RNA: Caenorhabditis snoRNA ceN108
RNA sequence: GUGCGAUGAAUGUAUUGGAUAAGUUUCGGCUGAUUCAUAAUUGAUGUCAACUUUAUAACUUGCUGAGCAC
Number, nucleotide and partner (000 for none) at each position: 001g070002u069003g068004c067005g000006a000007u000008g000009a000010a000011u000012g000013u000014a000015u000016u000017g000018g000019a000020u000021a000022a000023g000024u000025u000026u000027c000028g000029g000030c000031u000032g000033a000034u000035u000036c000037a000038u000039a000040a000041u000042u000043g000044a000045u000046g000047u000048c000049a000050a000051c000052u000053u000054u000055a000056u000057a000058a000059c000060u000061u000062g000063c000064u000065g000066a000067g004068c003069a002070c001